[Rfam]
RNA sequence: AAAAAGGGCUUCUGCCGUGCGUGGCACGGGGGGGCCCCGCGGCCGCCCCCGCGGAAUCGGCAUCAAGAGAUUUCGGAAGCACAAUUUUUGUAUGCGGGGGCCGCCGGUAACCGUGCGUUCCGGCGCCCCG
Numbered sequence: 001a002a003a004a005a006g007g008g009c010u011u012c013u014g015c016c017g018u019g020c021g022u023g024g025c026a027c028g029g030g031g032g033g034g035c036c037c038c039g040c041g042g043c044c045g046c047c048c049c050c051g052c053g054g055a056a057u058c059g060g061c062a063u064c065a066a067g068a069g070a071u072u073u074c075g076g077a078a079g080c081a082c083a084a085u086u087u088u089u090g091u092a093u094g095c096g097g098g099g100g101c102c103g104c105c106g107g108u109a110a111c112c113g114u115g116c117g118u119u120c121c122g123g124c125g126c127c128c129c130g
Base pairs, nucleotide, nucleotide: 008080009079010078011077012076013026014025015024016023017022027051028050029049030048031047032046034044036042037041052075053074054073055072056071057070058069098128099127100126101125103124104123105122106121107120109119110118111117
The family of this 130-nucleotide RNA sequence from Melopsittacus undulatus is "U11 spliceosomal RNA". The source organism's lineage runs through Eukaryota, Euteleostomi, Neognathae, Telluraves and Melopsittacus.